[Rfam]
Shown here is a 134-nucleotide RNA sequence from Antrostomus carolinensis, a member of the family "Small nucleolar RNA SNORA31". From the family's description: ACA31 (SNORA31) belongs to the H/ACA class of snoRNAs which are thought to guide the sites of modification of uridines to pseudouridines. It is annotated as an H/ACA-box small nucleolar RNA. The base pairs follow the family's consensus structure, which was predicted with RNAalifold. A search with the family's covariance model found it, with a score of 64 bits. Rfam links the family to the GO terms RNA processing and nucleolus.
RNA sequence: AUGCAUCUGUGACAGACCUGGAGCAAAUGGCCAUUGCUCCUCUGGUUCUUGCUGAGAUGCAACAGUAAGAGGCUCCUUGCGCUUUCUACCUGUCUGCCCCGGUGGCAGCGUGGAUUGAAUAAGGGAACACAGAC
Dot-bracket structure: .(((((((..(...((((..((((((.......))))))....))))..)....)))))))............(((((...(..((((.(((((.........)))))..))))..)....)))))........